A member of the RNA family "Small nucleolar RNA SNORD125" from Ornithorhynchus anatinus, 100 nucleotides long. By type it is a C/D-box small nucleolar RNA. The literature on the family includes a 2006 paper in Nucleic Acids Res by Yang et al., "snoSeeker: an advanced computational package for screening of guide and orphan snoRNA genes in the human genome". The family has 16 seed sequences and 526 matches in Rfam 15.1. The family is grouped with related families in Rfam's "SNORD61 clan". The base pairs follow the family's consensus structure, which was predicted with WAR. Rfam links the family to the GO terms RNA processing and nucleolus. The organism belongs to Ornithorhynchus, within Eukaryota.
RNA sequence: AGCCCUGGCCGCCUCUCCUGAUGACUCUUCUCUUCCUGACUGGCUCCAGUGAUGAGUAAACCUGAGCCUCUAAGAAGUUGACUGAAGAGGCCGCGGGGGA
Numbered sequence: 001a002g003c004c005c006u007g008g009c010c011g012c013c014u015c016u017c018c019u020g021a022u023g024a025c026u027c028u029u030c031u032c033u034u035c036c037u038g039a040c041u042g043g044c045u046c047c048a049g050u051g052a053u054g055a056g057u058a059a060a061c062c063u064g065a066g067c068c069u070c071u072a073a074g075a076a077g078u079u080g081a082c083u084g085a086a087g088a089g090g091c092c093g094c095g096g097g098g099g100a
Stems, first nucleotide, its partner, number of pairs: 008094002011091005